[Rfam]
This 229-nucleotide RNA sequence from Diabrotica virgifera belongs to the Rfam family "R2 RNA element". The match comes from Rfam's covariance-model search (46 bits). The base pairs follow the family's consensus structure, which is taken from published work. About the family: This family represents the 3' UTR region of the R2 retrotransposable element. This family is known to interact with the R2-encoded reverse transcriptase in a reaction known as target primed reverse transcription (TPRT). A reference for the family is Ruschak et al. (2004), "Secondary structure models of the 3' untranslated regions of diverse R2 RNAs", RNA.

RNA sequence: AAUUAGCUUUAAUAAUUGUUAGAAAUAAUAUUUCUAACAUAGCAUUAUAUUUCGACAUAGGUCGACGGGUCAGUGUAUAUUCUCGCUAAGAGUGGUCCCGGACCCGUCGGCUGGUGAAAGAGGAGGUGAGUUUAGUUGGUAGGCGAUCCGGCACGGUGAAGCGUGGCGGAUUGAAUCCAACACACCUGGGACACCUUCCCAGACGGUCUUUAGAAGAUUCUCACCUCCC
Numbered sequence: 001a002a003u004u005a006g007c008u009u010u011a012a013u014a015a016u017u018g019u020u021a022g023a024a025a026u027a028a029u030a031u032u033u034c035u036a037a038c039a040u041a042g043c044a045u046u047a048u049a050u051u052u053c054g055a056c057a058u059a060g061g062u063c064g065a066c067g068g069g070u071c072a073g074u075g076u077a078u079a080u081u082c083u084c085g086c087u088a089a090g091a092g093u094g095g096u097c098c099c100g101g102a103c104c105c106g107u108c109g110g111c112u113g114g115u116g117a118a119a120g121a122g123g124a125g126g127u128g129a130g131u132u133u134a135g136u137u138g139g140u141a142g143g144c145g146a147u148c149c150g151g152c153a154c155g156g157u158g159a160a161g162c163g164u165g166g167c168g169g170a171u172u173g174a175a176u177c178c179a180a181c182a183c184a185c186c187u188g189g190g191a192c193a194c195c196u197u198c199c200c201a202g203a204c205g206g207u208c209u210u211u212a213g214a215a216g217a218u219u220c221u222c223a224c225c226u227c228c229c
Base pairs, nucleotide, nucleotide: 035077036076038075039074040073122228123227124226125225126224127223128222129221135181136180137179138178139177144173145172146171147170148169149168150167152165153164154163183206